[Rfam]
The record is a 47-nucleotide RNA from Daphnia pulex, which matches "Histone 3' UTR stem-loop" in Rfam.
The mRNAs of metazoan histone genes lack a poly-A tail. 3' end processing occurs at a site between a highly conserved stem-loop (modelled by this family) and a purine rich region around 20 nts downstream (the histone downstream element, or HDE). The stem-loop is bound by a 31 kDa stem-loop binding protein (SLBP - also termed the histone hairpin binding protein, or HBP). Together with U7 snRNA binding of the HDE, SLBP binding nucleate s the formation of the processing complex. The histone 3' UTR stem-loop is also involved in nucleocytoplasmic transport of the mRNA, and in stability regulation and translation efficiency in the cytoplasm.
The match comes from Rfam's covariance-model search (35 bits).
The base pairs follow the family's consensus structure, which is taken from published work.

RNA sequence: CAAUCGGCCCUUUUAAGGGCCACCAAUCUGCUUUGGAAAAAAGAAAU
Numbered sequence: 001c002a003a004u005c006g007g008c009c010c011u012u013u014u015a016a017g018g019g020c021c022a023c024c025a026a027u028c029u030g031c032u033u034u035g036g037a038a039a040a041a042a043g044a045a046a047u
Base pairs, nucleotide, nucleotide: 006021007020008019009018010017011016